[Rfam]
RNA sequence: CGUACGAAACGGCAAAAUUAUUGAAAGAUAAUGACGCAAAGCUAUAGGGGCUAACGUUUUCAAGCUAAGCCAGCCAGCUGUCGAA
Numbered sequence: 001c002g003u004a005c006g007a008a009a010c011g012g013c014a015a016a017a018u019u020a021u022u023g024a025a026a027g028a029u030a031a032u033g034a035c036g037c038a039a040a041g042c043u044a045u046a047g048g049g050g051c052u053a054a055c056g057u058u059u060u061c062a063a064g065c066u067a068a069g070c071c072a073g074c075c076a077g078c079u080g081u082c083g084a085a
Base pairs, nucleotide, nucleotide: 012037013036017032018031019030020029021028022027040079041078042077043076047075048074049071050070051069056065057064058063

Record summary:
The record is an 85-nucleotide RNA from Peribacillus psychrosaccharolyticus, which matches "c-di-GMP-I riboswitch aptamer" in Rfam. The family's consensus secondary structure is taken from published work.